Rfam assigns this 336-nucleotide sequence from Alligator mississippiensis to the family "Nuclear RNase P".
A search with the family's covariance model found it, with a score of 123 bits.
Lineage of the source: Eukaryota > Craniata > Archelosauria > Crocodylia > Alligator.
From the family's description: Ribonuclease P (RNase P) is a ubiquitous endoribonuclease, found in archaea, bacteria and eukarya as well as chloroplasts and mitochondria.
Rfam links the family to the GO terms ribonuclease P activity, tRNA processing and ribonuclease P complex.

[Rfam]
RNA sequence: UCAGAAGGAAGCUCACCACUGAGAUCACUUACUGAGUGCUAAUCAUUCAUUUCUCUCUGCCUCUGGGAAGGUCUGAGAUCAAGAGCCAACAGGUGCCCUUUUAGGCACCCCCUGAAACAGGAGGGUGAGGUACCAGGGAGGCUGGACCCUGCCUUGGGAGAGGCACAAGAAGCCAAGGAGGGGGGGGGGCCUCCUUUCCUCCCCCGGCUAAUGCCCAUCCCCUGUGCAGGGUCUUGAGACAGGCUCAUGCCUGGCACCACUGAGUCCAAUGAGAUGAGGUGAGGCUUGCUCCCCACAUGCAGGACUCAGAACCCAAAUCAGACUAUUCCACUCUGA
Numbered sequence: 001u002c003a004g005a006a007g008g009a010a011g012c013u014c015a016c017c018a019c020u021g022a023g024a025u026c027a028c029u030u031a032c033u034g035a036g037u038g039c040u041a042a043u044c045a046u047u048c049a050u051u052u053c054u055c056u057c058u059g060c061c062u063c064u065g066g067g068a069a070g071g072u073c074u075g076a077g078a079u080c081a082a083g084a085g086c087c088a089a090c091a092g093g094u095g096c097c098c099u100u101u102u103a104g105g106c107a108c109c110c111c112c113u114g115a116a117a118c119a120g121g122a123g124g125g126u127g128a129g130g131u132a133c134c135a136g137g138g139a140g141g142c143u144g145g146a147c148c149c150u151g152c153c154u155u156g157g158g159a160g161a162g163g164c165a166c167a168a169g170a171a172g173c174c175a176a177g178g179a180g181g182g183g184g185g186g187g188g189g190c191c192u193c194c195u196u197u198c199c200u201c202c203c204c205c206g207g208c209u210a211a212u213g214c215c216c217a218u219c220c221c222c223u224g225u226g227c228a229g230g231g232u233c234u235u236g237a238g239a240c241a242g243g244c245u246c247a248u249g250c251c252u253g254g255c256a257c258c259a260c261u262g263a264g265u266c267c268a269a270u271g272a273g274a275u276g277a278g279g280u281g282a283g284g285c286u287u288g289c290u291c292c293c294c295a296c297a298u299g300c301a302g303g304a305c306u307c308a309g310a311a312c313c314c315a316a317a318u319c320a321g322a323c324u325a326u327u328c329c330a331c332u333c334u335g336a
Stems, first nucleotide, its partner, number of pairs: 001336004007329003012278004016273001021063003034048005073321004084252002087249001094107004108124002111121003125248005131242001145233008280308004285303005